[Rfam]
RNA sequence: GUGCUCACCAGGGUUUGGUCCUCUCUGUGUGGUUCUGACCUGCCCUCCAUGAGCGACAGAAACAGGAUUGAUUUGGGGGUGUCCUGUCUGAGUAGACAUGGGACACCAUGGUUUUCAGUACAACA
Number, nucleotide and partner (000 for none) at each position: 001g000002u000003g054004c053005u052006c051007a050008c000009c000010a000011g000012g044013g043014u042015u000016u000017g040018g039019u038020c037021c000022u000023c000024u000025c032026u031027g000028u000029g000030u000031g026032g025033u000034u000035c000036u000037g020038a019039c018040c017041u000042g014043c013044c012045c000046u000047c000048c000049a000050u007051g006052a005053g004054c003055g000056a000057c000058a000059g000060a000061a000062a000063c000064a000065g121066g000067a119068u118069u117070g116071a115072u000073u111074u110075g109076g000077g000078g107079g106080u105081g104082u103083c102084c101085u100086g097087u096088c095089u094090g000091a000092g000093u000094a089095g088096a087097c086098a000099u000100g085101g084102g083103a082104c081105a080106c079107c078108a000109u075110g074111g073112u000113u000114u000115u071116c070117a069118g068119u067120a000121c065122a000123a000124c000125a000
RNA: Small Cajal body specific RNA 23
Organism: Jaculus jaculus